[Rfam]
RNA sequence: AGCGUCUCGCGCGACUGGCGACUUUGGAUGGAGCACCAUCGGGAAGCGCGGGAAUAUCCGCCGCGCGCCUGGGCAAAAGCA
Numbered sequence: 001a002g003c004g005u006c007u008c009g010c011g012c013g014a015c016u017g018g019c020g021a022c023u024u025u026g027g028a029u030g031g032a033g034c035a036c037c038a039u040c041g042g043g044a045a046g047c048g049c050g051g052g053a054a055u056a057u058c059c060g061c062c063g064c065g066c067g068c069c070u071g072g073g074c075a076a077a078a079g080c081a
Stems, first nucleotide, its partner, number of pairs: 005053008015043002017069004028039004060074003
This 81-nucleotide RNA sequence from Bradyrhizobium erythrophlei belongs to the Rfam family "ZMP/ZTP riboswitch aptamer (pfl RNA motif)". It scores 58 bits against the family's covariance model. The base pairs follow the family's consensus structure, which is taken from published work. For this family Rfam cites "Metal Ion-Mediated Nucleobase Recognition by the ZTP Riboswitch" (Trausch et al., Chem Biol, 2015). Lineage of the source: Bacteria > Pseudomonadota > Alphaproteobacteria > Hyphomicrobiales > Bradyrhizobium.